[Rfam]
RNA sequence: UGGCGCCCCGAACACGGACUCUGGAAACGAGGACUCUUGAGGAAGAGGACGCCAAAAAAAAACGAUGUCGACGCUAACAGACAAAAGGAAUUAAACUGAUCACCGCGGAACCUGCGCGUCAGGACGAAGGUUAAGUGAGGCGGUCCGAUGGGCAAGAAUUAAGUCAGCAUCAAUAUAUGUAGGACAAUUAAAGGCUUUAAGAUACGAGGGUAAAAGGUUAAAGGUAAUGACUUGUUUAUUUUUUGUAUUUGUAAAAGAUACUUUGCCUU
Numbered sequence: 001u002g003g004c005g006c007c008c009c010g011a012a013c014a015c016g017g018a019c020u021c022u023g024g025a026a027a028c029g030a031g032g033a034c035u036c037u038u039g040a041g042g043a044a045g046a047g048g049a050c051g052c053c054a055a056a057a058a059a060a061a062a063c064g065a066u067g068u069c070g071a072c073g074c075u076a077a078c079a080g081a082c083a084a085a086a087g088g089a090a091u092u093a094a095a096c097u098g099a100u101c102a103c104c105g106c107g108g109a110a111c112c113u114g115c116g117c118g119u120c121a122g123g124a125c126g127a128a129g130g131u132u133a134a135g136u137g138a139g140g141c142g143g144u145c146c147g148a149u150g151g152g153c154a155a156g157a158a159u160u161a162a163g164u165c166a167g168c169a170u171c172a173a174u175a176u177a178u179g180u181a182g183g184a185c186a187a188u189u190a191a192a193g194g195c196u197u198u199a200a201g202a203u204a205c206g207a208g209g210g211u212a213a214a215a216g217g218u219u220a221a222a223g224g225u226a227a228u229g230a231c232u233u234g235u236u237u238a239u240u241u242u243u244u245g246u247a248u249u250u251g252u253a254a255a256a257g258a259u260a261c262u263u264u265g266c267c268u269u
Base pairs, nucleotide, nucleotide: 006032008031035049036048037047038046094132095131096130097128100124101122104118105117106116107115140153141152145151146150160199161198162197163195164194165193205245206244207243208242209241210240215233216232217231218230219229220228255269256268257267259265
A member of the RNA family "Mason-Pfizer monkey virus packaging signal" from Macaca nemestrina, 269 nucleotides long.
It scores 122 bits against the family's covariance model.
From the family's description: This family represents a group of sequences that are related to the Mason-Pfizer monkey virus (MPMV) packaging signal. The packaging signal is located in the 5' UTR and is required for specific RNA encapsidation.